[Rfam]
RNA sequence: CCGAGUGAGGUGCCCAUGCGCCGUAGGCGCAUAUUAAAAUGGCACCGACGAACUGCCGCCGAACGGAAGUGAGGGGACGAUACCAUAA
Numbered sequence: 001c002c003g004a005g006u007g008a009g010g011u012g013c014c015c016a017u018g019c020g021c022c023g024u025a026g027g028c029g030c031a032u033a034u035u036a037a038a039a040u041g042g043c044a045c046c047g048a049c050g051a052a053c054u055g056c057c058g059c060c061g062a063a064c065g066g067a068a069g070u071g072a073g074g075g076g077a078c079g080a081u082a083c084c085a086u087a088a
Base pairs, nucleotide, nucleotide: 009046010045011044012043013042014041016032017031018030019029020028021027055078057076059074060073063070064069
Dot-bracket structure: ........((((((.((((((.....))))))........))))))........(.(.((..((....))..)).).)..........

A member of the RNA family "GA-cis RNA", 88 nucleotides long. The family's consensus secondary structure is taken from published work.